[Rfam]
RNA sequence: UAACGUCUUCAGGGCGGGGUGGAAUUCCCCACCGGCGGUAGGUGCGGUGCCUCGGUUUCGGACCGGUGGCGUGCACGAGCCCGCGAGCGCCUGCUCCCCGGAGCAGGGUCAGCAGAUCCGGUCCAAUGCCGGAGCCGACGGUCCUGCUUCCAGUCGCCCUGGCGACCGGUGGCACACAGUCCGGAUGAAAGAAGACGGCC
Numbered sequence: 001u002a003a004c005g006u007c008u009u010c011a012g013g014g015c016g017g018g019g020u021g022g023a024a025u026u027c028c029c030c031a032c033c034g035g036c037g038g039u040a041g042g043u044g045c046g047g048u049g050c051c052u053c054g055g056u057u058u059c060g061g062a063c064c065g066g067u068g069g070c071g072u073g074c075a076c077g078a079g080c081c082c083g084c085g086a087g088c089g090c091c092u093g094c095u096c097c098c099c100g101g102a103g104c105a106g107g108g109u110c111a112g113c114a115g116a117u118c119c120g121g122u123c124c125a126a127u128g129c130c131g132g133a134g135c136c137g138a139c140g141g142u143c144c145u146g147c148u149u150c151c152a153g154u155c156g157c158c159c160u161g162g163c164g165a166c167c168g169g170u171g172g173c174a175c176a177c178a179g180u181c182c183g184g185a186u187g188a189a190a191g192a193a194g195a196c197g198g199c200c
Base pairs, nucleotide, nucleotide: 004197005196006195007194008193009192010191017029018028019027033137034136035084036083037082038081087113088112117133118132119131120130121129139183140182141181

A member of the RNA family "FMN riboswitch aptamer (RFN element)" from Agrilutibacter solisilvae, 200 nucleotides long. The RFN element is a highly conserved domain that is found frequently in the 5'-untranslated regions of prokaryotic mRNAs that encode for flavin mononucleotide (FMN) biosynthesis and transport proteins. The family's consensus secondary structure is taken from published work.